[Rfam]
RNA sequence: GCAAGAGAAUGAUUGAUAUAAAACUCAAAAUAUCCCCCUGGGCCUCUCACAGCGUCCCAUGCCAGAGCAAACGCGGCCCCGAACCAUUGCCUGGCCUCUGCCAGUAGGCUGCAGGUACUGAAGCGGGUUGCACAGUG
Numbered sequence: 001g002c003a004a005g006a007g008a009a010u011g012a013u014u015g016a017u018a019u020a021a022a023a024c025u026c027a028a029a030a031u032a033u034c035c036c037c038c039u040g041g042g043c044c045u046c047u048c049a050c051a052g053c054g055u056c057c058c059a060u061g062c063c064a065g066a067g068c069a070a071a072c073g074c075g076g077c078c079c080c081g082a083a084c085c086a087u088u089g090c091c092u093g094g095c096c097u098c099u100g101c102c103a104g105u106a107g108g109c110u111g112c113a114g115g116u117a118c119u120g121a122a123g124c125g126g127g128u129u130g131c132a133c134a135g136u137g
Base pairs, nucleotide, nucleotide: 001062002061003060005057007055014052017049021045024041025040074130075129076128077127078126079125085120086119090115091114092111093110094109095108096107097106